[Rfam]
RNA sequence: GCGUUAACCAAUACCAUGCUUGUGCCGCUUGUGAACUCUUCAAAGAAAUGGCGUGAGCAACCUUUUCCCUGGUGUUGGCGCAGUAUUCGCGCACCCCGGCACAAGC
Dot-bracket structure: ..................((((((((.......................)))))))).............(((....((((.......)))))))...........
RNA: ArcZ RNA
Organism: Pantoea alhagi